The record is a 147-nucleotide RNA sequence from Glycine soja, which matches "MIR4371 microRNA precursor family" in Rfam. A search with the family's covariance model found it, with a score of 111 bits. The family is grouped with related families in Rfam's "MIR4387 microRNA precursor clan". Taxonomically the source falls in Glycine subgen. Soja (Eukaryota, Euphyllophyta, Phaseoleae, Glycine).
RNA sequence: UCGUUAAGUGAUGACGUGACGGACGGAGUGUCAUGUCAUUACGCCCAAUUACCAACACGUCAGUGCUACGUCAUUGAAGGUGAUGAUGUGUCCAUGACAAGAUGUGAUGACAUGACACAUUAUUUGUCAUGUCAUCACUUAAUAGAA
Dot-bracket structure: (.(((((((((((((((((((((.((.((((((((((((((((.(...(((...((((...........(((((........)))))))))...)))...).)))))))))))))))).)).))))))))))))))))))))).)..